mir-802 microRNA precursor family: a 93-nucleotide sequence from Nannospalax galili.
[Rfam]
RNA sequence: GUUCUAUUAUUUGCAGUCAGUAACAAAGAUUCAUCCUGUGUCAAUCAUACAACACAGAGAAUCUUUGUCACUUAAUGUAAAUAAUAGCUUCAU
Numbered sequence: 001g002u003u004c005u006a007u008u009a010u011u012u013g014c015a016g017u018c019a020g021u022a023a024c025a026a027a028g029a030u031u032c033a034u035c036c037u038g039u040g041u042c043a044a045u046c047a048u049a050c051a052a053c054a055c056a057g058a059g060a061a062u063c064u065u066u067g068u069c070a071c072u073u074a075a076u077g078u079a080a081a082u083a084a085u086a087g088c089u090u091c092a093u
Base pairs, nucleotide, nucleotide: 004087005086006085007084008083009082011080012079013078014077015076017074019072020071021070023068024067025066026065027064028063029062030061031060032059034058035057037054038053039052040050041049
On this family, see Takada et al., Nucleic Acids Res 2006: "Mouse microRNA profiles determined with a new and sensitive cloning method". The organism belongs to Nannospalax, within Eukaryota.